Overview
The record is a 403-nucleotide sequence from Planosporangium mesophilum, which matches "Bacterial RNase P class A" in Rfam. Lineage of the source: Bacteria > Actinomycetes > Micromonosporales > Micromonosporaceae > Planosporangium. The match comes from Rfam's covariance-model search (275 bits).
RNA sequence: CGAGUCGACCGGGCGGCCGCGUCAACGCAGCUUUCAGCUUCGUUGCCGAGGAACGUCCGGGCUCCACAGGGCAGGGUGGUUGUUAACGGCAACCCGGGGCGACCCGCGGGAAAGUGCCACAGAAAACAGACCGCCUCGCGGCCCACGGGCCACGAGGUAAGGGUGAAACGGUGGAGUAAGAGCCCACCAGCACCCCGGGUGACCGGGGUGGCUCGGUAAACCCCACCCGGAGCAAGGCCAAGAGGGUCGCCGCACCGCGGCGACCUGCGCAGGCGUUCGAGGGCUGCCCGCCCGAUGCCUGCGGGUAGGCCGCUAGAGCCUGCCGGCGACGGCAGGCCGAGAUGGAUGGCCGCCGGCCCGCGGAAGCGGGUCACAGGACCCGGCGUACAGGUCGACUCGUCCG
Numbered sequence: 001c002g003a004g005u006c007g008a009c010c011g012g013g014c015g016g017c018c019g020c021g022u023c024a025a026c027g028c029a030g031c032u033u034u035c036a037g038c039u040u041c042g043u044u045g046c047c048g049a050g051g052a053a054c055g056u057c058c059g060g061g062c063u064c065c066a067c068a069g070g071g072c073a074g075g076g077u078g079g080u081u082g083u084u085a086a087c088g089g090c091a092a093c094c095c096g097g098g099g100c101g102a103c104c105c106g107c108g109g110g111a112a113a114g115u116g117c118c119a120c121a122g123a124a125a126a127c128a129g130a131c132c133g134c135c136u137c138g139c140g141g142c143c144c145a146c147g148g149g150c151c152a153c154g155a156g157g158u159a160a161g162g163g164u165g166a167a168a169c170g171g172u173g174g175a176g177u178a179a180g181a182g183c184c185c186a187c188c189a190g191c192a193c194c195c196c197g198g199g200u201g202a203c204c205g206g207g208g209u210g211g212c213u214c215g216g217u218a219a220a221c222c223c224c225a226c227c228c229g230g231a232g233c234a235a236g237g238c239c240a241a242g243a244g245g246g247u248c249g250c251c252g253c254a255c256c257g258c259g260g261c262g263a264c265c266u267g268c269g270c271a272g273g274c275g276u277u278c279g280a281g282g283g284c285u286g287c288c289c290g291c292c293c294g295a296u297g298c299c300u301g302c303g304g305g306u307a308g309g310c311c312g313c314u315a316g317a318g319c320c321u322g323c324c325g326g327c328g329a330c331g332g333c334a335g336g337c338c339g340a341g342a343u344g345g346a347u348g349g350c351c352g353c354c355g356g357c358c359c360g361c362g363g364a365a366g367c368g369g370g371u372c373a374c375a376g377g378a379c380c381c382g383g384c385g386u387a388c389a390g391g392u393c394g395a396c397u398c399g400u401c402c403g
Stems, first nucleotide, its partner, number of pairs: 001399010011388001012354007020048002023045005053386003057383005062232004069289004074228005079093005094108001095106004109223002114221002116217003131162002133158006140151004170188005190212001191210008236311004269302006281293004318337008